[Rfam]
Nucleotides: 045
Base pairs, nucleotide, nucleotide: 001019002018003017004016005015006014007013008012032044033043034042035041036040
Number, partner (000 for none) and nucleotide at each position: 001019c002018c003017c004016g005015g006014g007013g008012c009000g010000u011000u012008g013007c014006c015005c016004c017003g018002g019001g020000c021000u022000a023000u024000c025000a026000u027000c028000u029000u030000u031000c032044g033043c034042c035041c036040c037000g038000u039000u040036g041035g042034g043033g044032c045000u